[Rfam]
RNA sequence: CAGUAAUAACAAGCGCCAGAGCUUGGUCUUGCGCGGGGGAGAAGGGAAAGCUAAUUAGCUUGAACGGAUCACGGCAGACGUAAGCUGACGAGGUGGAGGUGUUCGAAAUGUUCGGCGGGGACCUCCCGGUGAUGCACCAGAGCCGUGAAUGCAAGCGGAAAAUGCAAGGGCGACCUUACACACAACGCUUUCAUGGGUGCACAA
Numbered sequence: 001c002a003g004u005a006a007u008a009a010c011a012a013g014c015g016c017c018a019g020a021g022c023u024u025g026g027u028c029u030u031g032c033g034c035g036g037g038g039g040a041g042a043a044g045g046g047a048a049a050g051c052u053a054a055u056u057a058g059c060u061u062g063a064a065c066g067g068a069u070c071a072c073g074g075c076a077g078a079c080g081u082a083a084g085c086u087g088a089c090g091a092g093g094u095g096g097a098g099g100u101g102u103u104c105g106a107a108a109u110g111u112u113c114g115g116c117g118g119g120g121a122c123c124u125c126c127c128g129g130u131g132a133u134g135c136a137c138c139a140g141a142g143c144c145g146u147g148a149a150u151g152c153a154a155g156c157g158g159a160a161a162a163u164g165c166a167a168g169g170g171c172g173a174c175c176u177u178a179c180a181c182a183c184a185a186c187g188c189u190u191u192c193a194u195g196g197g198u199g200c201a202c203a204a
Stems, first nucleotide, its partner, number of pairs: 020086006095126005103115004127145004131138001149194003153190003163180002166177004
glmS glucosamine-6-phosphate activated ribozyme aptamer: a 204-nucleotide RNA from Paenibacillus agri. The source organism's lineage runs through Bacteria, Bacillati, Caryophanales, Paenibacillaceae and Paenibacillus. Pairs were carried over by alignment from the consensus structure, which is taken from published work. Its family is annotated with catalytic activity and regulation of gene expression in the Gene Ontology.